The family of this 82-nucleotide RNA sequence from Trifolium pratense is "MIR862_2 microRNA precursor family".
RNA sequence: ACUUUUCAUGUUCCCUCAAAGGCUUCCAGUAUUCGGUCAUAUAAACUUGAAUGCUGGGAGGUUUUGUAGGAACUUGAUAGCU
Number, nucleotide and partner (000 for none) at each position: 001a000002c000003u000004u000005u000006u077007c076008a075009u000010g073011u072012u071013c070014c069015c000016u000017c066018a065019a064020a063021g062022g000023c060024u000025u058026c057027c056028a055029g054030u053031a052032u051033u050034c049035g000036g000037u000038c000039a000040u000041a000042u000043a000044a000045a000046c000047u000048u000049g034050a033051a032052u031053g030054c029055u028056g027057g026058g025059a000060g023061g000062u021063u020064u019065u018066g017067u000068a000069g014070g013071a012072a011073c010074u000075u008076g007077a006078u000079a000080g000081c000082u000